[Rfam]
RNA sequence: UGCUGUGAUGAUGUAAUUUGCGCCCUACCCGGUGCUCAGCGACAGUUGCCUGCUGUCACCGUGCUGGCACCGCCGGGCUGACGACUCCUCCACUCUGAGCA
Numbered sequence: 001u002g003c004u005g006u007g008a009u010g011a012u013g014u015a016a017u018u019u020g021c022g023c024c025c026u027a028c029c030c031g032g033u034g035c036u037c038a039g040c041g042a043c044a045g046u047u048g049c050c051u052g053c054u055g056u057c058a059c060c061g062u063g064c065u066g067g068c069a070c071c072g073c074c075g076g077g078c079u080g081a082c083g084a085c086u087c088c089u090c091c092a093c094u095c096u097g098a099g100c101a
Base pairs, nucleotide, nucleotide: 001101002100003099021083022082024080030072031071032070033069034068039064040063041057042056043055044054045053

Small nucleolar RNA SNORD16: a 101-nucleotide RNA sequence from Notiomystis cincta. By type it is a C/D-box small nucleolar RNA. For this family Rfam cites "A novel small nucleolar RNA (U16) is encoded inside a ribosomal protein intron and originates by processing of the pre-mRNA" (Fragapane et al., EMBO J, 1993). Clan: SNORD16 clan.